[Rfam]
Description
The family of this 85-nucleotide RNA is "Plastid-psbM 3UTR RNA". By type it is a cis-regulatory element. On this family, see Richter et al., Plant Commun 2023: "Retrograde signaling in plants: A critical review focusing on the GUN pathway and beyond". Plastid psbM is a non-coding RNA (ncRNA) recognised in plastids. It was found in the three prime untranslated region (3UTR) of psbM gene, its 3UTR location suggests a role in transcript maturation.
RNA sequence: UAAGUAUGGUCGAAAGAUUCAUAUAUGAAUCUUUCGACCAUACUAUCUAUUUUUAUUAUUGUACUGUAGAAAGAUACAAACUGAA
Numbered sequence: 001u002a003a004g005u006a007u008g009g010u011c012g013a014a015a016g017a018u019u020c021a022u023a024u025a026u027g028a029a030u031c032u033u034u035c036g037a038c039c040a041u042a043c044u045a046u047c048u049a050u051u052u053u054u055a056u057u058a059u060u061g062u063a064c065u066g067u068a069g070a071a072a073g074a075u076a077c078a079a080a081c082u083g084a085a
Base pairs, nucleotide, nucleotide: 003044004043005042006041007040008039009038010037011036012035013034014033015032016031017030018029019028020027021026